[Rfam]
RNA sequence: GCGCUGGUUAGCUCAGAGGUUACUUCAUUGAAACUCAAUCUCUCGGUCCGCGGGCCGUAGGUUCGAACCACGGGCAAUGUCCAGCGUUUUC
Numbered sequence: 001g002c003g004c005u006g007g008u009u010a011g012c013u014c015a016g017a018g019g020u021u022a023c024u025u026c027a028u029u030g031a032a033a034c035u036c037a038a039u040c041u042c043u044c045g046g047u048c049c050g051c052g053g054g055c056c057g058u059a060g061g062u063u064c065g066a067a068c069c070a071c072g073g074g075c076a077a078u079g080u081c082c083a084g085c086g087u088u089u090u091c
Stems, first nucleotide, its partner, number of pairs: 002086006011075004016071001018069002024067003
A member of the RNA family "Vault RNA" from Denticeps clupeoides, 91 nucleotides long. This family of RNAs are found as part of the enigmatic vault ribonucleoprotein complex. The complex consists of a major vault protein (MVP), two minor vault proteins (VPARP and TEP1), and several small untranslated RNA molecules. It has been suggested that the vault complex is involved in drug resistance. By type it is a non-coding RNA gene. NCBI's taxonomy places the organism under Eukaryota, Opisthokonta, Eumetazoa, Vertebrata, Denticeps.